Shown here is a 101-nucleotide RNA from Plutella xylostella, a member of the family "mir-8517 microRNA precursor family".

RNA sequence: AUACUGUACGCUUUAGCUAUUGAUCUGUCACUCUCUGACAGAGAACAAUUUGUUAUUUGACAGAGAGUGACAAAACAGUUCAAUAGCUAAAGCGUCUUAUG
Number, nucleotide and partner (000 for none) at each position: 001a000002u101003a100004c000005u000006g097007u000008a000009c000010g000011c092012u091013u090014u089015a088016g087017c086018u085019a084020u083021u082022g081023a080024u064025c063026u062027g061028u060029c059030a058031c000032u000033c000034u000035c000036u000037g000038a000039c000040a000041g000042a000043g000044a054045a053046c052047a051048a000049u000050u000051u047052g046053u045054u044055a000056u000057u000058u030059g029060a028061c027062a026063g025064a024065g000066a000067g000068u000069g000070a000071c000072a000073a000074a000075a000076c000077a000078g000079u000080u023081c022082a021083a020084u019085a018086g017087c016088u015089a014090a013091a012092g011093c000094g000095u000096c000097u006098u000099a000100u003101g002